[Rfam]
RNA sequence: GCGGCAUUAGCUCAGUUGGUAGAGCACUGGAUUGUGGCUCCAGGUGUCACCGGUUCGAAUCCGGUAUGUCGCC
Numbered sequence: 001g002c003g004g005c006a007u008u009a010g011c012u013c014a015g016u017u018g019g020u021a022g023a024g025c026a027c028u029g030g031a032u033u034g035u036g037g038c039u040c041c042a043g044g045u046g047u048c049a050c051c052g053g054u055u056c057g058a059a060u061c062c063g064g065u066a067u068g069u070c071g072c073c
Base pairs, nucleotide, nucleotide: 001072002071003070004069005068006067007066010025011024012023013022027043028042029041030040031039049065050064051063052062053061
A member of the RNA family "tRNA" from Tepidiphilus thermophilus, 73 nucleotides long. Transfer RNA (tRNA) molecules are approximately 80 nucleotides in length. Their secondary structure includes four short double-helical elements and three loops (D, anti-codon, and T loops). Further hydrogen bonds mediate the characteristic L-shaped molecular structure. tRNAs have two regions of fundamental functional importance: the anti-codon, which is responsible for specific mRNA codon recognition, and the 3' end, to which the tRNAs corresponding amino acid is attached (by aminoacyl-tRNA synthetases). tRNAs cope with the degeneracy of the genetic code in two manners: having more than one tRNA (with a specific anti-codon) for a particular amino acid; and 'wobble' base-pairing, i.e. permitting non-standard base-pairing at the 3rd anti-codon position. A search with the family's covariance model found it, with a score of 67 bits. Rfam classes the family as a transfer RNA.